[Rfam]
RNA sequence: CUGGCCCCGGUUCACGUAAGGCAAUCCCGCCUCUACGACCCGGCGCC
Numbered sequence: 001c002u003g004g005c006c007c008c009g010g011u012u013c014a015c016g017u018a019a020g021g022c023a024a025u026c027c028c029g030c031c032u033c034u035a036c037g038a039c040c041c042g043g044c045g046c047c
Base pairs, nucleotide, nucleotide: 003047004046005045007043008042009041010040015037016036017035018034019032020031021030022029

Shown here is a 47-nucleotide RNA from Streptomyces varsoviensis, a member of the family "L31-Actinobacteria ribosomal protein leader". The sequence is in the family's curated seed alignment. The family's RNA type in Rfam is cis-regulatory leader. NCBI's taxonomy places the organism under Bacteria, Actinomycetota, Kitasatosporales, Streptomycetaceae, Streptomyces.